[Rfam]
RNA sequence: AGGCUAACGAAAACACAGGCUGAGUGUUCUAUAACUUUCAUCACUUAGUCUGCACCUGUGUUGGCCAAGA
Numbered sequence: 001a002g003g004c005u006a007a008c009g010a011a012a013a014c015a016c017a018g019g020c021u022g023a024g025u026g027u028u029c030u031a032u033a034a035c036u037u038u039c040a041u042c043a044c045u046u047a048g049u050c051u052g053c054a055c056c057u058g059u060g061u062u063g064g065c066c067a068a069g070a
Stems, first nucleotide, its partner, number of pairs: 002066002005063005016052007025043002
Dot-bracket structure: .((.(((((......(((((((..((...............))..)))))))......))))).))....